Rfam assigns this 109-nucleotide sequence from Brassica carinata to the family "Small nucleolar RNA snoR97". The base pairs follow the family's consensus structure, which was predicted with WAR.

[Rfam]
RNA sequence: UUUAUAUAUGGUGCUUCUAAUCUGAAGUAGCUCAGAAGUUGUCAGUGCUCUCAUCAGCUUCAGUCUCUUUCUAAUUAUGAGACUGGAGUCACACAAGAACUCUACAUUG
Numbered sequence: 001u002u003u004a005u006a007u008a009u010g011g012u013g014c015u016u017c018u019a020a021u022c023u024g025a026a027g028u029a030g031c032u033c034a035g036a037a038g039u040u041g042u043c044a045g046u047g048c049u050c051u052c053a054u055c056a057g058c059u060u061c062a063g064u065c066u067c068u069u070u071c072u073a074a075u076u077a078u079g080a081g082a083c084u085g086g087a088g089u090c091a092c093a094c095a096a097g098a099a100c101u102c103u104a105c106a107u108u109g
Stems, first nucleotide, its partner, number of pairs: 044103002047100001049098002057089005064082004
For this family Rfam cites "Experimental RNomics: identification of 140 candidates for small non-messenger RNAs in the plant Arabidopsis thaliana" (Marker et al., Curr Biol, 2002).